[Rfam]
RNA sequence: UUGCAAGUGCAGGGCCAUAGCAGAAGUGCCCAUGGCACAGCCUGUCAGUUUCCAACAACUCUGCAAAUUCUGCU
Numbered sequence: 001u002u003g004c005a006a007g008u009g010c011a012g013g014g015c016c017a018u019a020g021c022a023g024a025a026g027u028g029c030c031c032a033u034g035g036c037a038c039a040g041c042c043u044g045u046c047a048g049u050u051u052c053c054a055a056c057a058a059c060u061c062u063g064c065a066a067a068u069u070c071u072g073c074u
Stems, first nucleotide, its partner, number of pairs: 013042003019074007026038003046063003051058001

A member of the RNA family "Mammalian CPEB3 ribozyme" from Alligator sinensis, 74 nucleotides long.